[Rfam]
RNA: tRNA
RNA sequence: GCGCCCGUAGCUCAGUUGGAUAGAGUGACAGACUCCGACUCUGUAGGCCGCUGGUUCGAAUCCAGUCGGGCGUA
Number, nucleotide and partner (000 for none) at each position: 001g073002c072003g071004c070005c069006c068007g067008u000009a000010g026011c025012u024013c023014a000015g000016u000017u000018g000019g000020a000021u000022a000023g013024a012025g011026u010027g000028a044029c043030a042031g041032a040033c000034u000035c000036c000037g000038a000039c000040u032041c031042u030043g029044u028045a000046g000047g000048c000049c000050g066051c065052u064053g063054g062055u000056u000057c000058g000059a000060a000061u000062c054063c053064a052065g051066u050067c007068g006069g005070g004071c003072g002073u001074a000